[Rfam]
A member of the RNA family "Small nucleolar RNA SNORA3/SNORA45 family" from Xenopus laevis, 132 nucleotides long.
RNA sequence: CCUGAGACUAGAGUCACAUCCUAACAUUCCUAAUUGUUUUGGUGUGCUAGAGUUCUCGGAGAGAAAUUACUGAUCUUUAUUCACUGGUUGGUUCUCUAUGUAGCUCAAUCAGUCACCGGUUCAGUGACAUAC
Number, nucleotide and partner (000 for none) at each position: 001c000002c059003u058004g057005a056006g055007a053008c052009u051010a000011g000012a048013g047014u000015c046016a045017c044018a043019u042020c041021c000022u000023a038024a037025c036026a035027u000028u000029c000030c000031u000032a000033a000034u000035u026036g025037u024038u023039u000040u000041g020042g019043u018044g017045u016046g015047c013048u012049a000050g000051a009052g008053u007054u000055c006056u005057c004058g003059g002060a000061g000062a000063g000064a000065a000066a000067u000068u000069a000070c124071u123072g122073a121074u000075c119076u118077u000078u000079a000080u000081u000082c000083a113084c112085u111086g110087g109088u000089u107090g106091g105092u000093u103094c000095u000096c000097u000098a000099u000100g000101u000102a000103g093104c000105u091106c090107a089108a000109u087110c086111a085112g084113u083114c000115a000116c000117c000118g076119g075120u000121u073122c072123a071124g070125u000126g000127a000128c000129a000130u000131a000132c000
Gene Ontology terms of the family: RNA processing and nucleolus. Clan: SNORA3 clan. The members of this family belong to the H/ACA class of snoRNAs which are thought to guide the sites of modification of uridines to pseudouridines. This family includes mouse snoMBI-28 and human homologues ACA3 (SNORA3) and ACA3-2 (SNORA45). Both ACA3 and ACA3-2 share the same host gene. MBI-28, ACA3 and ACA3-2 are all predicted to guide the pseudouridylation of residues in 28S rRNA. Rfam classes the family as an H/ACA-box small nucleolar RNA. A search with the family's covariance model found it, with a score of 97 bits. The literature on the family includes a 2005 paper in Nucleic Acids Res by Gu et al., "A novel experimental approach for systematic identification of box H/ACA snoRNAs from eukaryotes".